RNA sequence: AAGAAAGGAGAGCUCCCCAUAGCCAAAAUCACAGUAUUACUGUGAUACUGUGAUACUGUGAUUUUGGCUAUGGGGAGCUCUCCUUUCUU
Numbered sequence: 001a002a003g004a005a006a007g008g009a010g011a012g013c014u015c016c017c018c019a020u021a022g023c024c025a026a027a028a029u030c031a032c033a034g035u036a037u038u039a040c041u042g043u044g045a046u047a048c049u050g051u052g053a054u055a056c057u058g059u060g061a062u063u064u065u066g067g068c069u070a071u072g073g074g075g076a077g078c079u080c081u082c083c084u085u086u087c088u089u
Base pairs, nucleotide, nucleotide: 007083008082009081010080011079012078013077014076015075016074017073018072021069022068024066025065026064027063028062
A member of the RNA family "MIR319 microRNA precursor family" from Columbina picui, 89 nucleotides long. The match comes from Rfam's covariance-model search (55 bits). The base pairs follow the family's consensus structure, which was predicted with RNAalifold. The family has 11 seed sequences and 168 matches in Rfam 15.1.